[Rfam]
Nucleotides: 125
Stems, first nucleotide, its partner, number of pairs: 002124007010116002013113012026100007034093005039086004043081001045078008055070005
Number, partner (000 for none) and nucleotide at each position: 001000c002124u003123a004122a005121u006120u007119a008118c009000a010116a011115g012000c013113c014112a015111u016110u017109g018108u019107c020106u021105u022104c023103c024102a025000u026100g027099g028098a029097a030096u031095a032094g033000g034093c035092a036091g037090u038089g039086a040085u041084g042083g043081c044000a045078u046077u047076u048075g049074u050073u051072u052071u053000a054000u055070u056069u057068u058067c059066c060000u061000g062000a063000g064000u065000u066059g067058g068057a069056g070055a071052a072051a073050a074049a075048c076047a077046a078045a079000u080000a081043g082000a083042c084041c085040a086039u087000a088000a089038c090037a091036c092035u093034g094032u095031u096030a097029u098028u099027c100026c101000u102024u103023g104022g105021a106020a107019g108018a109017u110016a111015a112014u113013g114000a115011c116010u117000c118008g119007u120006g121005g122004u123003u124002g125000a